[Rfam]
RNA sequence: GUGUUUGCAGCUGUGGCAUCAUCAAGAUUCACACCGAUCAUCACCGAUGAGAGGUUGACUUGUUGAGAAUCUUGAUGAUGCUGCAUCGGCAAAUAA
Numbered sequence: 001g002u003g004u005u006u007g008c009a010g011c012u013g014u015g016g017c018a019u020c021a022u023c024a025a026g027a028u029u030c031a032c033a034c035c036g037a038u039c040a041u042c043a044c045c046g047a048u049g050a051g052a053g054g055u056u057g058a059c060u061u062g063u064u065g066a067g068a069a070u071c072u073u074g075a076u077g078a079u080g081c082u083g084c085a086u087c088g089g090c091a092a093a094u095a096a
Stems, first nucleotide, its partner, number of pairs: 010087001012085019032065002
Shown here is a 96-nucleotide sequence from Zingiber officinale, a member of the family "mir-172 microRNA precursor family".
mir-172 has been experimentally verified in Arabidopsis thaliana. This family is thought to target mRNAs coding for APETALA2-like transcription factors. The mature sequence is excised from the 3' arm of the hairpin.
For this family Rfam cites "Computational Identification of Plant MicroRNAs and Their Targets, Including a Stress-Induced miRNA" (Jones-Rhoades and Bartel, Mol Cell, 2004).
It scores 84 bits against the family's covariance model.
The family has 11 seed sequences and 2,076 matches in Rfam 15.1.
NCBI's taxonomy places the organism under Eukaryota, Spermatophyta, Petrosaviidae, Zingiberales, Zingiber.
The base pairs follow the family's consensus structure, which was predicted with PFOLD.